[Rfam]
RNA sequence: AAGUGUUACGGCUCUUUUAUUAAUAGAAUUUGUCUGGCAGGUUUUCUGGUUUUCCAGAAAACUCCC
Numbered sequence: 001a002a003g004u005g006u007u008a009c010g011g012c013u014c015u016u017u018u019a020u021u022a023a024u025a026g027a028a029u030u031u032g033u034c035u036g037g038c039a040g041g042u043u044u045u046c047u048g049g050u051u052u053u054c055c056a057g058a059a060a061a062c063u064c065c066c
Stems, first nucleotide, its partner, number of pairs: 040063010
RNA: U7 small nuclear RNA
Organism: Propithecus coquereli